[Rfam]
RNA sequence: AACUUAUCAAGAAAGGCAGAGGGAAACGGGCCCGAUGACGCCUUGACAACCUUCCAACAGAGCAGACAUAGUGCAUCGUCGUUUGUAUAACUGUUGGAAAAGGUGCCAAUUCCUACCCCCUGCCAUGAUGGGGGAAAGAUAAGUC
Number, nucleotide and partner (000 for none) at each position: 001a000002a144003c143004u142005u141006a140007u139008c138009a000010a000011g000012a000013a044014a043015g042016g041017c040018a000019g000020a000021g033022g032023g031024a000025a000026a000027c000028g114029g113030g112031c023032c022033c021034g000035a000036u000037g000038a000039c000040g017041c016042c015043u014044u013045g107046a000047c105048a104049a000050c103051c102052u099053u098054c097055c096056a095057a094058c093059a092060g091061a000062g000063c000064a000065g000066a000067c000068a000069u000070a000071g000072u000073g000074c000075a000076u000077c000078g000079u000080c000081g000082u000083u000084u000085g000086u000087a000088u000089a000090a000091c060092u059093g058094u057095u056096g055097g054098a053099a052100a000101a000102g051103g050104u048105g047106c000107c045108a000109a000110u000111u137112c030113c029114u028115a000116c134117c133118c132119c131120c130121u000122g000123c000124c000125a000126u000127g000128a000129u000130g120131g119132g118133g117134g116135a000136a000137a111138g008139a007140u006141a005142a004143g003144u002145c000
RNA: SAM riboswitch aptamer (S box leader)
Organism: Pseudobacter ginsenosidimutans